[Rfam]
RNA sequence: CGCAACUGAUUCAUCGAGAGUAGGAACGAAGCCGUCAUGUUGAGUUGAAACUACUCCUCUAAUACUACUGCAUGCAUAAAUAAGUAGUAGAUUAUUUAUGUAUGAAGCCAGGUGAAGUCGGCUGAAUCAUACCUAAGUUCUUGAAAAAUAAUAUGGUAUGAGAUAGGCCGGAAGGCUGAAAA
Dot-bracket structure: .................((((((.......(.(..........).)....))))))((.(.......((((((((((((((((........)))))))))))))....))).......(((((...(((((((.(.....).)....((...)).))))))....)))))).))........
Numbered sequence: 001c002g003c004a005a006c007u008g009a010u011u012c013a014u015c016g017a018g019a020g021u022a023g024g025a026a027c028g029a030a031g032c033c034g035u036c037a038u039g040u041u042g043a044g045u046u047g048a049a050a051c052u053a054c055u056c057c058u059c060u061a062a063u064a065c066u067a068c069u070g071c072a073u074g075c076a077u078a079a080a081u082a083a084g085u086a087g088u089a090g091a092u093u094a095u096u097u098a099u100g101u102a103u104g105a106a107g108c109c110a111g112g113u114g115a116a117g118u119c120g121g122c123u124g125a126a127u128c129a130u131a132c133c134u135a136a137g138u139u140c141u142u143g144a145a146a147a148a149u150a151a152u153a154u155g156g157u158a159u160g161a162g163a164u165a166g167g168c169c170g171g172a173a174g175g176c177u178g179a180a181a182a
Stems, first nucleotide, its partner, number of pairs: 018056006031046001033044001057174002060171001068111003071104013119170005127161006133143001135141001148154002
Rfam assigns this 182-nucleotide RNA sequence from Crassaminicella thermophila to the family "Group II catalytic intron D1-D4-5". Group II introns are found in rRNA, tRNA and mRNA of organelles in fungi, plants and protists, and also in mRNA in bacteria. The family has 139 seed sequences and 720 matches in Rfam 15.1. It scores 110 bits against the family's covariance model. Taxonomically the source falls in Crassaminicella (Bacteria, Bacillota, Clostridia, Eubacteriales).